[Rfam]
RNA sequence: CGUCGCCUGCUGUAUGACCGUCACGGCGGCCAUACCCGUGCGUUUUUGAAUCUGGUCGUGCCGCUGGCCACCGGCCACCGCCACGCGCACCAGGGAAACCACCGGGCCGCGCCCGGCAGGUCCCGCGCAGUUUCCCCGCUGAUCGGCCCCGGCCUUCGGCGAGGCGACGUAGAUAGCACGACACGGCG
Numbered sequence: 001c002g003u004c005g006c007c008u009g010c011u012g013u014a015u016g017a018c019c020g021u022c023a024c025g026g027c028g029g030c031c032a033u034a035c036c037c038g039u040g041c042g043u044u045u046u047u048g049a050a051u052c053u054g055g056u057c058g059u060g061c062c063g064c065u066g067g068c069c070a071c072c073g074g075c076c077a078c079c080g081c082c083a084c085g086c087g088c089a090c091c092a093g094g095g096a097a098a099c100c101a102c103c104g105g106g107c108c109g110c111g112c113c114c115g116g117c118a119g120g121u122c123c124c125g126c127g128c129a130g131u132u133u134c135c136c137c138g139c140u141g142a143u144c145g146g147c148c149c150c151g152g153c154c155u156u157c158g159g160c161g162a163g164g165c166g167a168c169g170u171a172g173a174u175a176g177c178a179c180g181a182c183a184c185g186g187c188g
Base pairs, nucleotide, nucleotide: 004042005041006040012035013034014033015032016031018029019028020027021026056181057180058179059178060177061176062080063079065077066076067075068074069073085128086127087126088125093124094123095122096121099120100119102116103115104114105113106112131167132166134164135163137161138160139159140158141157142156145154146153147152

The record is a 188-nucleotide sequence, which matches "RT-15 RNA" in Rfam. Pairs were carried over by alignment from the consensus structure, which is taken from published work. It is one of the family's seed sequences. Rfam classes the family as a small RNA.